[Rfam]
Nucleotides: 359
Base pairs, nucleotide, nucleotide: 004359005358006357007355008311009310010309011308012307013306014305016035017034018033019032020031021030040353041352042351044350045349046348047347048346049231050230051229052228053227054071055070056069057068058067059066077226078225079224080223081222082100083099084098085097086096087095101117102115103114104113105112106111118221119220121161122160123159128153129152130151131150136146137145167219168218169215170214171213184203185202186201187200189198190197191196235250236249237248254284255283256282257281258280259279260278285296286295287294288293315336316335317334318333319332320331321330
Number, partner (000 for none) and nucleotide at each position: 001000a002000g003000u004359u005358u006357u007355g008311a009310g010309c011308a012307a013306u014305c015000g016035c017034g018033a019032u020031u021030a022000a023000c024000u025000g026000a027000u028000g029000u030021u031020a032019g033018u034017u035016g036000a037000g038000g039000a040353a041352a042351g043000u044350c045349c046348a047347c048346g049231c050230c051229c052228g053227c054071a055070c056069a057068a058067a059066c060000u061000g062000a063000g064000a065000u066059g067058u068057u069056u070055g071054u072000a073000g074000u075000g076000a077226u078225u079224g080223u081222a082100c083099u084098c085097a086096g087095c088000c089000c090000a091000a092000u093000a094000a095087g096086c097085u098084g099083g100082g101117g102115g103114a104113u105112u106111u107000g108000u109000u110000u111106a112105a113104a114103u115102u116000a117101c118221g119220g120000c121161g122160g123159a124000a125000a126000a127000a128153a129152u130151g131150c132000u133000a134000a135000a136146u137145u138000c139000u140000c141000u142000a143000u144000g145137a146136a147000c148000a149000u150131g151130c152129a153128u154000u155000a156000g157000u158000a159123u160122c161121c162000u163000g164000a165000a166000a167219g168218u169215g170214c171213c172000a173000c174000a175000g176000u177000g178000a179000c180000g181000a182000a183000g184203c185202a186201u187200u188000a189198g190197a191196g192000g193000a194000a195000a196191c197190u198189c199000a200187a201186a202185u203184g204000g205000u206000g207000g208000a209000a210000c211000g212000a213171g214170g215169u216000a217000a218168a219167c220119c221118c222081u223080g224079c225078a226077a227053g228052c229051g230050g231049g232000c233000a234000a235250c236249c237248c238000a239000a240000a241000u242000u243000u244000g245000g246000u247000a248237g249236g250235g251000g252000c253000g254284u255283u256282u257281c258280g259279u260278c261000u262000a263000a264000g265000a266000a267000a268000a269000u270000g271000a272000a273000c274000u275000a276000a277000a278260g279259a280258c281257g282256a283255a284254a285296u286295c287294a288293u289000u290000a291000a292000u293288a294287u295286g296285a297000a298000g299000a300000u301000a302000g303000a304000u305014g306013a307012u308011u309010g310009c311008u312000a313000a314000u315336u316335g317334u318333u319332a320331a321330a322000a323000a324000u325000a326000c327000c328000a329000u330321u331320u332319u333318a334317a335316c336315a337000u338000g339000a340000a341000c342000a343000g344000a345000a346048c347047g348046u349045g350044g351042c352041u353040u354000a355007u356000a357006g358005a359004a
Overview: Rfam assigns this 359-nucleotide RNA from Lactobacillus iners to the family "Bacterial RNase P class B". The family is grouped with related families in Rfam's "RNaseP clan". It scores 308 bits against the family's covariance model. The organism belongs to Lactobacillus iners, within Bacteria. Ribonuclease P (RNase P) is a ubiquitous endoribonuclease, found in archaea, bacteria and eukarya as well as chloroplasts and mitochondria. The base pairs follow the family's consensus structure, which is taken from published work.